[Rfam]
RNA sequence: UUCCGAUGAAGAAGCUCUCCCAAAAUUGAUAGGAAGUGCCGUAUGACACUCCAAACCGCAGCGAGAAG
Dot-bracket structure: .............((.................(.((((........)))).)........))......
Rfam assigns this 68-nucleotide sequence from Cucurbita maxima to the family "Small nucleolar RNA U49". Rfam links the family to the GO terms nucleolus and RNA processing. Rfam 15.1 lists 340 matches to the family in 152 species.